The family of this 361-nucleotide sequence from Pistricoccus aurantiacus is "Bacterial RNase P class A". About the family: Ribonuclease P (RNase P) is a ubiquitous endoribonuclease, found in archaea, bacteria and eukarya as well as chloroplasts and mitochondria.

[Rfam]
RNA sequence: GGAGUCGGCCAGACAGUCGCCGCCGGUGGCCUACAAGCCGCCGGGGGAGGAAAGUCCGGGCUCCACAGGGCAGAGUGCCAGGUAACGCCUGGGCGGCGUGAGCCGACGGCCAGUGCAGCAGAGAGCAGACCGCCUACGUCUUCGCAGGAAGACCGGUAAGGGUGAAAGGGUGCGGUAAGAGCGCACCGCGCGCCUGGUAACAGUGCGUGGCACGGUAAACCCCACUCGGAGCAAGACCAAAUAGGAACCCGUUGGCGUGGCCCGCGCUGGGUUCGGGUAGGUUGCUUGAGGAGCGUGGCGACGCGCUCCCUAGAGGAAUGACUGUCCACGACAGAACCCGGCUUAUCGGCCGGCUCCCUCC
Number, nucleotide and partner (000 for none) at each position: 001g357002g356003a355004g354005u353006c352007g351008g350009c349010c348011a346012g326013a325014c324015a323016g322017u321018c320019g000020c047021c046022g000023c044024c043025g042026g041027u040028g039029g038030c037031c000032u000033a000034c000035a000036a000037g030038c029039c028040g027041c026042c025043g024044g023045g000046g021047g020048a000049g000050g000051a000052a344053a343054g342055u000056c341057c340058g339059g338060g337061c231062u230063c229064c228065a000066c000067a000068g263069g262070g261071c260072a000073g227074a226075g225076u224077g223078c092079c091080a090081g089082g088083u000084a000085a000086c000087g000088c082089c081090u080091g079092g078093g107094c105095g104096g103097c102098g000099u000100g000101a000102g097103c096104c095105g094106a000107c093108g222109g221110c000111c000112a000113g220114u219115g216116c215117a000118g000119c000120a000121g000122a000123g000124a000125g000126c000127a000128g000129a000130c161131c160132g157133c156134c155135u000136a000137c000138g153139u152140c151141u150142u149143c148144g000145c000146a000147g000148g143149a142150a141151g140152a139153c138154c000155g134156g133157u132158a000159a000160g131161g130162g000163u000164g000165a000166a000167a000168g000169g187170g186171u185172g184173c183174g182175g000176u000177a000178a000179g000180a000181g000182c174183g173184c172185a171186c170187c169188g211189c209190g208191c207192g206193c205194c203195u202196g201197g000198u000199a000200a000201c196202a195203g194204u000205g193206c192207g191208u190209g189210g000211c188212a000213c000214g000215g116216u115217a000218a000219a114220c113221c109222c108223c077224a076225c075226u074227c073228g064229g063230a062231g061232c000233a000234a000235g283236a282237c281238c280239a000240a000241a000242u000243a000244g000245g274246a273247a272248c271249c270250c269251g000252u000253u000254g268255g267256c266257g265258u264259g000260g071261c070262c069263c068264g258265c257266g256267c255268u254269g250270g249271g248272u247273u246274c245275g000276g000277g000278u000279a000280g238281g237282u236283u235284g000285c000286u000287u000288g000289a000290g309291g308292a307293g306294c305295g304296u303297g302298g000299c000300g000301a000302c297303g296304c295305g294306c293307u292308c291309c290310c000311u000312a000313g000314a000315g000316g000317a000318a000319u000320g018321a017322c016323u015324g014325u013326c012327c000328a000329c000330g000331a000332c000333a000334g000335a000336a000337c060338c059339c058340g057341g056342c054343u053344u052345a000346u011347c000348g010349g009350c008351c007352g006353g005354c004355u003356c002357c001358c000359u000360c000361c000
About this RNA: NCBI's taxonomy places the organism under Bacteria, Pseudomonadota, Oceanospirillales, Halomonadaceae, Pistricoccus. It scores 327 bits against the family's covariance model.